[Rfam]
RNA: Plastid-clpP 5UTR RNA
RNA sequence: AAUUCGUCUCAGAAGAAAAAAGAGAAGCAGAUAUGUUCUAACCCGAUAAGUAUCAAUACACAAAGGGG
Numbered sequence: 001a002a003u004u005c006g007u008c009u010c011a012g013a014a015g016a017a018a019a020a021a022g023a024g025a026a027g028c029a030g031a032u033a034u035g036u037u038c039u040a041a042c043c044c045g046a047u048a049a050g051u052a053u054c055a056a057u058a059c060a061c062a063a064a065g066g067g068g
Stems, first nucleotide, its partner, number of pairs: 003022002007018001009016002042067003050059003